Shown here is a 100-nucleotide RNA from Alteribacter keqinensis, a member of the family "TPP riboswitch aptamer (THI element)".
The base pairs follow the family's consensus structure, which is taken from published work.
A search with the family's covariance model found it, with a score of 70 bits.
The literature on the family includes a 2002 paper in J Biol Chem by Rodionov et al., "Comparative genomics of thiamin biosynthesis in procaryotes. New genes and regulatory mechanisms".
RNA sequence: AAAGACCACUAGGGGUGCUUUUUUGCUGAGAGAGACGUUUGUCUUAACCCUGUCACCUGAACUGGGUAAUACCAGCGGAGGGAAGUGGCGUCAGCAUUAU
Numbered sequence: 001a002a003a004g005a006c007c008a009c010u011a012g013g014g015g016u017g018c019u020u021u022u023u024u025g026c027u028g029a030g031a032g033a034g035a036c037g038u039u040u041g042u043c044u045u046a047a048c049c050c051u052g053u054c055a056c057c058u059g060a061a062c063u064g065g066g067u068a069a070u071a072c073c074a075g076c077g078g079a080g081g082g083a084a085g086u087g088g089c090g091u092c093a094g095c096a097u098u099a100u
Stems, first nucleotide, its partner, number of pairs: 006088005011051004017026002033044004056081003062075004